[Rfam]
RNA sequence: AUAUAUACUGAGUGGCCAGAUUAUUAUGCAUUCAGAAAUCAUAAUAAUCUGGCCACUCAGUGUGUGU
Numbered sequence: 001a002u003a004u005a006u007a008c009u010g011a012g013u014g015g016c017c018a019g020a021u022u023a024u025u026a027u028g029c030a031u032u033c034a035g036a037a038a039u040c041a042u043a044a045u046a047a048u049c050u051g052g053c054c055a056c057u058c059a060g061u062g063u064g065u066g067u
Stems, first nucleotide, its partner, number of pairs: 004064014019049010
Shown here is a 67-nucleotide sequence from Cnephaeus nilssonii, a member of the family "mir-9256 microRNA precursor family". Rfam links the family to the GO terms miRNA-mediated post-transcriptional gene silencing and RISC complex.